[Rfam]
Nucleotides: 067
Stems, first nucleotide, its partner, number of pairs: 002062004006057004016050006025043004
Number, partner (000 for none) and nucleotide at each position: 001000a002062g003061c004060g005059c006057u007056c008055a009054u010000u011000u012000u013000c014000a015000a016050g017049c018048c019047g020046c021045a022000c023000g024000c025043g026042g027041g028040c029000c030000u031000g032000c033000u034000g035000c036000u037000g038000g039000u040028g041027c042026c043025c044000c045021u046020g047019c048018g049017g050016u051000c052000g053000g054009g055008u056007g057006a058000u059005g060004c061003g062002c063000g064000a065000g066000a067000g
This 67-nucleotide RNA from Leishmania braziliensis belongs to the Rfam family "Trypanosomatid snoRNA TB10Cs1H2". The sequence is in the family's curated seed alignment. The family's RNA type in Rfam is H/ACA-box small nucleolar RNA. The base pairs follow the family's consensus structure, which was predicted with WAR.